[Rfam]
RNA sequence: UGACUGUGCUAAGUAGUAGUGCCGCAGGUAACUGAUAUUUGAAUUACCUGCCCUCUGCUGCUUACAACAGUGC
Numbered sequence: 001u002g003a004c005u006g007u008g009c010u011a012a013g014u015a016g017u018a019g020u021g022c023c024g025c026a027g028g029u030a031a032c033u034g035a036u037a038u039u040u041g042a043a044u045u046a047c048c049u050g051c052c053c054u055c056u057g058c059u060g061c062u063u064a065c066a067a068c069a070g071u072g073c
Base pairs, nucleotide, nucleotide: 003071004070005069006068007067010064011063012062013061014060015059016058017057018056019055024051025050026049027048028047029046030045